Overview: Rfam assigns this 47-nucleotide RNA from Acanthochromis polyacanthus to the family "Small nucleolar RNA SNORD2". The match comes from Rfam's covariance-model search (39 bits). A reference for the family is Zhou et al. (2004), "Identification of a novel box C/D snoRNA from mouse nucleolar cDNA library", Gene.
[Rfam]
RNA sequence: AAGUGACAUAAUGGCAUUCAUCUUUUAGAGCUGACUUGAGCUCGCUU
Numbered sequence: 001a002a003g004u005g006a007c008a009u010a011a012u013g014g015c016a017u018u019c020a021u022c023u024u025u026u027a028g029a030g031c032u033g034a035c036u037u038g039a040g041c042u043c044g045c046u047u
Base pairs, nucleotide, nucleotide: 001047002046003045004044005043006042